[Rfam]
RNA: Group II catalytic intron D1-D4-4
Organism: Paenalicyclobacillus ferrooxydans
RNA sequence: UUGUCGGUGAAAGUCCGACCGAGGUAGGGACCAAGCCACCUCGUAGCCAGCAGGCGUCUGGUGGCGAGAGCCUAAGGAUGGAGCACCUGUGAAAGCCCCGCGAAACACUGGGGUAAGGCAAAACUGCAGGCUGUAACAUAA
Numbered sequence: 001u002u003g004u005c006g007g008u009g010a011a012a013g014u015c016c017g018a019c020c021g022a023g024g025u026a027g028g029g030a031c032c033a034a035g036c037c038a039c040c041u042c043g044u045a046g047c048c049a050g051c052a053g054g055c056g057u058c059u060g061g062u063g064g065c066g067a068g069a070g071c072c073u074a075a076g077g078a079u080g081g082a083g084c085a086c087c088u089g090u091g092a093a094a095g096c097c098c099c100g101c102g103a104a105a106c107a108c109u110g111g112g113g114u115a116a117g118g119c120a121a122a123a124c125u126g127c128a129g130g131c132u133g134u135a136a137c138a139u140a141a
Stems, first nucleotide, its partner, number of pairs: 020043005050090005055080005064071002095114005118134003